The record is a 65-nucleotide sequence from Phytomonas sp. EM1, which matches "Trypanosomatid snoRNA TB10Cs1H2" in Rfam.
RNA sequence: AGCACUCAUUUCAAGCCGCAUCGCGCGAGAUACGCGUGCGCGUGUGGUCGGGUGAUGUGCGAGAG
Dot-bracket structure: .((((((((.....((((((..(((((.........))))).))))))...)))).)))).....
Lineage of the source: Eukaryota > Kinetoplastea > Metakinetoplastina > Trypanosomatidae > Phytomonas.